[Rfam]
Rfam assigns this 82-nucleotide RNA sequence from Tetradesmus obliquus to the family "Small nucleolar RNA snoR8a". On this family, see Brown et al., RNA 2001: "Multiple snoRNA gene clusters from Arabidopsis".

RNA sequence: ACAGGUGCAAUGAUUAUAGUAGCAUUGGAUCAGCCCUUAGGGGCCUGAAGACACAUCAUACACCCAUAGAAUCUGAGCACCU
Numbered sequence: 001a002c003a004g005g006u007g008c009a010a011u012g013a014u015u016a017u018a019g020u021a022g023c024a025u026u027g028g029a030u031c032a033g034c035c036c037u038u039a040g041g042g043g044c045c046u047g048a049a050g051a052c053a054c055a056u057c058a059u060a061c062a063c064c065c066a067u068a069g070a071a072u073c074u075g076a077g078c079a080c081c082u
Stems, first nucleotide, its partner, number of pairs: 003082002006079002

Rfam 15.1 lists 956 matches to the family in 245 species. The base pairs follow the family's consensus structure, which was predicted with WAR. Rfam links the family to the GO terms nucleolus and RNA processing. A search with the family's covariance model found it, with a score of 37 bits. Lineage of the source: Eukaryota > Viridiplantae > core chlorophytes > Scenedesmaceae > Tetradesmus.